Notes:
Rfam assigns this 175-nucleotide RNA from Fulvivirga sp. M361 to the family "Group II catalytic intron D1-D4-3". The match comes from Rfam's covariance-model search (89 bits).
Nucleotides: 175
Base pairs, nucleotide, nucleotide: 001016002015003014004013005012006011028175029174031172032171035168040162041161042160043159044158045157048153049152050151062150063149064148065147066146067145074142075141076140078137081134082133083132085113086112087111088110091106092105093104094103
Number, partner (000 for none) and nucleotide at each position: 001016u002015u003014u004013g005012g006011a007000g008000u009000g010000a011006u012005c013004c014003a015002a016001g017000c018000a019000u020000u021000g022000a023000a024000g025000u026000a027000a028175g029174u030000c031172a032171a033000a034000c035168u036000g037000c038000g039000g040162u041161a042160u043159c044158u045157g046000a047000a048153c049152u050151g051000a052000c053000g054000a055000a056000c057000a058000g059000g060000a061000a062150c063149c064148a065147u066146a067145u068000a069000c070000a071000g072000a073000g074142g075141c076140u077000a078137u079000g080000a081134g082133g083132u084000c085113g086112g087111a088110u089000g090000a091106g092105g093104u094103a095000g096000c097000a098000c099000a100000u101000c102000a103094u104093a105092c106091u107000g108000a109000a110088g111087u112086c113085c114000a115000a116000a117000u118000c119000u120000c121000g122000a123000a124000a125000g126000a127000g128000a129000a130000g131000u132083a133082c134081c135000g136000a137078a138000g139000u140076g141075g142074u143000a144000g145067a146066u147065a148064u149063g150062g151050c152049a153048g154000g155000a156000u157045u158044a159043g160042a161041u162040a163000a164000a165000a166000g167000g168035a169000u170000a171032u172031u173000c174029g175028c

Taxonomically the source falls in Fulvivirga (Bacteria, Pseudomonadati, Bacteroidota, Cytophagales).